This 37-nucleotide sequence from Lachnospiraceae bacterium AM48-27BH belongs to the Rfam family "abiF RNA".
[Rfam]
RNA sequence: CCCAACACGCCUCUCGAUGAUGCGUACCAUGUUGGGU
Numbered sequence: 001c002c003c004a005a006c007a008c009g010c011c012u013c014u015c016g017a018u019g020a021u022g023c024g025u026a027c028c029a030u031g032u033u034g035g036g037u
Base pairs, nucleotide, nucleotide: 001036002035003034004033005032006031008024009023010022
Source information
From the family's description: Actinobacteria, Bacteroidetes, Clostridia, Proteobacteria, one Clostridia phage. Pairs were carried over by alignment from the consensus structure, which is taken from published work. Taxonomically the source falls in Lachnospiraceae (Bacteria, Bacillati, Bacillota, Clostridia).